[Rfam]
RNA sequence: UUUCAUCAUCAAGAGUUGGGAAGACGCCCAACGCCAACCUGCCGAUCCGGGCAAGGUGGUACUCCGACAGAUGGGGGAUGUGGCCGAACCGGCAACCAAGCGGAACGGA
Dot-bracket structure: ......((((....((((((......))))))(((..((((((..[[[[))).))).)))................))))..((((...)))).......]]]].....
RNA: SAM-I/IV (S-adenosyl methionine) riboswitch aptamer